[Rfam]
RNA sequence: UCUAGAACUCGAGAUAUGGGCUGAACACUGAACAGUGUCUGGGCUGUAGGACAGAUUCAGACUUCUUCAUUGUUGCUAUAAUUUUGACUUGAAAACAGCCUUUUUAAAUCUUAGACUCUACAAGAGAGUUAUAGGCCUAUGUCUUACCUUUCCAUC
Numbered sequence: 001u002c003u004a005g006a007a008c009u010c011g012a013g014a015u016a017u018g019g020g021c022u023g024a025a026c027a028c029u030g031a032a033c034a035g036u037g038u039c040u041g042g043g044c045u046g047u048a049g050g051a052c053a054g055a056u057u058c059a060g061a062c063u064u065c066u067u068c069a070u071u072g073u074u075g076c077u078a079u080a081a082u083u084u085u086g087a088c089u090u091g092a093a094a095a096c097a098g099c100c101u102u103u104u105u106a107a108a109u110c111u112u113a114g115a116c117u118c119u120a121c122a123a124g125a126g127a128g129u130u131a132u133a134g135g136c137c138u139a140u141g142u143c144u145u146a147c148c149u150u151u152c153c154a155u156c
Stems, first nucleotide, its partner, number of pairs: 003154001005152003009146001011145010021134003025130001027129003036122002041119003045115001048112004054105002060099001062098002072088003
Description: This 156-nucleotide RNA sequence from Populus tomentosa belongs to the Rfam family "MIR2912 microRNA precursor family". A search with the family's covariance model found it, with a score of 123 bits. The organism belongs to Populus, within Eukaryota. Gene Ontology terms of the family: miRNA-mediated post-transcriptional gene silencing and RISC complex.